[Rfam]
RNA: Small nucleolar RNA snoR8a
Organism: Camellia sinensis
RNA sequence: GGGGUUUGCGGUGAUUAUGAAGUAAAUUCCUCGUAAUGAAUGCAAACUUUUGCAUGACAGACUCUAUUUACACCCAUAGUGUUUGUGGGCC
Numbered sequence: 001g002g003g004g005u006u007u008g009c010g011g012u013g014a015u016u017a018u019g020a021a022g023u024a025a026a027u028u029c030c031u032c033g034u035a036a037u038g039a040a041u042g043c044a045a046a047c048u049u050u051u052g053c054a055u056g057a058c059a060g061a062c063u064c065u066a067u068u069u070a071c072a073c074c075c076a077u078a079g080u081g082u083u084u085g086u087g088g089g090c091c
Stems, first nucleotide, its partner, number of pairs: 003091002006089002